RNA: Glycine riboswitch aptamer
RNA sequence: ACGAUCGACUCUGGAGAGCAACCGCCAAAACGCGGUUCACCGACGGGGCUAAUCUCUCAGGUGCCAGGACAGAGGGGCGGCG
Numbered sequence: 001a002c003g004a005u006c007g008a009c010u011c012u013g014g015a016g017a018g019c020a021a022c023c024g025c026c027a028a029a030a031c032g033c034g035g036u037u038c039a040c041c042g043a044c045g046g047g048g049c050u051a052a053u054c055u056c057u058c059a060g061g062u063g064c065c066a067g068g069a070c071a072g073a074g075g076g077g078c079g080g081c082g
Stems, first nucleotide, its partner, number of pairs: 006077001009074005020037004039062003042058002046056003